[Rfam]
RNA sequence: GUCUAGAGAUAGGAUUGCCCCCGUUAUGUUGCCGGUAAAUACCGAACAAUGUGCGGGGGUUUUCU
Dot-bracket structure: ................((((((((..(((((..(.......)....))))).)))))))).....

Notes:
The record is a 65-nucleotide RNA from Kluyvera cryocrescens, which matches "rdlD antitoxin" in Rfam. Rfam links the family to the GO terms negative regulation of translation and mRNA binding. It is annotated as an antitoxin RNA. A search with the family's covariance model found it, with a score of 55 bits. NCBI's taxonomy places the organism under Bacteria, Pseudomonadota, Gammaproteobacteria, Enterobacteriaceae, Kluyvera.